This 84-nucleotide sequence from Candidatus Nitrotoga fabula belongs to the Rfam family "SAH (S-adenosyl-L-homocysteine) riboswitch aptamer". The organism belongs to Candidatus Nitrotoga, within Bacteria. The family's consensus secondary structure is taken from published work. It scores 55 bits against the family's covariance model.

[Rfam]
RNA sequence: AGUUCCGAGGGGCGCUGCGACCCUGCUCAAUCAGGGCCAGGCUUGGAAUGCGGGAUGCCCCUGUAGUAACGGCGCUCAUUCAUU
Numbered sequence: 001a002g003u004u005c006c007g008a009g010g011g012g013c014g015c016u017g018c019g020a021c022c023c024u025g026c027u028c029a030a031u032c033a034g035g036g037c038c039a040g041g042c043u044u045g046g047a048a049u050g051c052g053g054g055a056u057g058c059c060c061c062u063g064u065a066g067u068a069a070c071g072g073c074g075c076u077c078a079u080u081c082a083u084u
Base pairs, nucleotide, nucleotide: 002049003048004047005046006045007044008043021036022035023034024033025032